The family of this 115-nucleotide RNA from Desmospora activa is "ylbH leader".
The literature on the family includes a 2004 paper in Proc Natl Acad Sci U S A by Barrick et al., "New RNA motifs suggest an expanded scope for riboswitches in bacterial genetic control".
Lineage of the source: Bacteria > Bacillati > Bacilli > Desmospora > Desmospora activa.
It is annotated as a cis-regulatory leader.
Gene Ontology term of the family: regulation of gene expression.
This family is a putative regulatory RNA structure that is found upstream of the ylbH gene in B. subtilis and related low GC Gram-positive bacteria.
RNA sequence: ACAAAAAAAACCCGCAACGCUUGCGGGUCAAUGGUGCUCGCCCUGCGGCGAACACUGAAUGGGAGAGGAGAAACCGGAGGAAGAGCUUAUGGGGAAACGUAAGUCUUCUCCGCAG
Numbered sequence: 001a002c003a004a005a006a007a008a009a010a011c012c013c014g015c016a017a018c019g020c021u022u023g024c025g026g027g028u029c030a031a032u033g034g035u036g037c038u039c040g041c042c043c044u045g046c047g048g049c050g051a052a053c054a055c056u057g058a059a060u061g062g063g064a065g066a067g068g069a070g071a072a073a074c075c076g077g078a079g080g081a082a083g084a085g086c087u088u089a090u091g092g093g094g095a096a097a098c099g100u101a102a103g104u105c106u107u108c109u110c111c112g113c114a115g
Stems, first nucleotide, its partner, number of pairs: 011027007028063002031060002036053001038051004075112004080108004085104005